[Rfam]
RNA: MIR396 microRNA precursor family
Organism: Phtheirospermum japonicum
RNA sequence: UGUCAUGCUUUUCCACAGCUUUCUUGAACUUCUGAAAGUACAAUUCGUGAAAUAUAUCUCACAAGAAGUUCAAGAAAGCUGUGGGAAGACAUGCCAA
Numbered sequence: 001u002g003u004c005a006u007g008c009u010u011u012u013c014c015a016c017a018g019c020u021u022u023c024u025u026g027a028a029c030u031u032c033u034g035a036a037a038g039u040a041c042a043a044u045u046c047g048u049g050a051a052a053u054a055u056a057u058c059u060c061a062c063a064a065g066a067a068g069u070u071c072a073a074g075a076a077a078g079c080u081g082u083g084g085g086a087a088g089a090c091a092u093g094c095c096a097a
Stems, first nucleotide, its partner, number of pairs: 004093004013084003017080006024073004029068005